[Rfam]
RNA sequence: GGUGGUUCUCAGGUGAUGCACAAUGGAAUCUGGCUUCCUCCUCUCUGGUUCUGGCUGUGUCACCUGAGAACCACA
Numbered sequence: 001g002g003u004g005g006u007u008c009u010c011a012g013g014u015g016a017u018g019c020a021c022a023a024u025g026g027a028a029u030c031u032g033g034c035u036u037c038c039u040c041c042u043c044u045c046u047g048g049u050u051c052u053g054g055c056u057g058u059g060u061c062a063c064c065u066g067a068g069a070a071c072c073a074c075a
Base pairs, nucleotide, nucleotide: 002074003073005071006070007069008068009067010066011065012064013063014062015061016060017059019057020056025052026051027050028049029048030047032045033044
RNA: mir-9223 microRNA precursor family